RNA: ctRNA
Organism: Mesorhizobium denitrificans
RNA sequence: AGAAGAGCUUCCGCGCGGUGACGUUCGGGGGCUUUUUUCUUUUGC
Numbered sequence: 001a002g003a004a005g006a007g008c009u010u011c012c013g014c015g016c017g018g019u020g021a022c023g024u025u026c027g028g029g030g031g032c033u034u035u036u037u038u039c040u041u042u043u044g045c
Stems, first nucleotide, its partner, number of pairs: 005034008015025001016023002